RNA sequence: CAGUUUUCAUUUGCAGUGUCAUAUAAAACUG
Numbered sequence: 001c002a003g004u005u006u007u008c009a010u011u012u013g014c015a016g017u018g019u020c021a022u023a024u025a026a027a028a029c030u031g
Stems, first nucleotide, its partner, number of pairs: 001031007009024002012021002014018001
Annotation
The record is a 31-nucleotide RNA sequence from Cyanistes caeruleus, which matches "Iron response element II" in Rfam. A reference for the family is Cmejla et al. (2006), "A novel iron responsive element in the 3'UTR of human MRCKalpha", Biochem Biophys Res Commun. NCBI's taxonomy places the organism under Eukaryota, Teleostomi, Telluraves, Passeriformes, Cyanistes. Its family is annotated with response to iron ion in the Gene Ontology. It scores 33 bits against the family's covariance model. Rfam describes the family as follows. IRE, TFRC, SLC40A1, SDHB, SLC11A2, CDC42BPA, ACO2, ALAS2_H.SAPIENS, CDC14A, EPAS1, ALAS2, qoxD, Hao1, NDUFS1, transferrin, Aconitate. By type it is a cis-regulatory element.